[Rfam]
RNA: Plastid-atpF group II-D1 intron
RNA sequence: CUGCAUUUUUUUGGUAUAGAACUCUCAUGUUGAUAAAAUGAUUUGAACCAUUU
Numbered sequence: 001c002u003g004c005a006u007u008u009u010u011u012u013g014g015u016a017u018a019g020a021a022c023u024c025u026c027a028u029g030u031u032g033a034u035a036a037a038a039u040g041a042u043u044u045g046a047a048c049c050a051u052u053u
Stems, first nucleotide, its partner, number of pairs: 011033007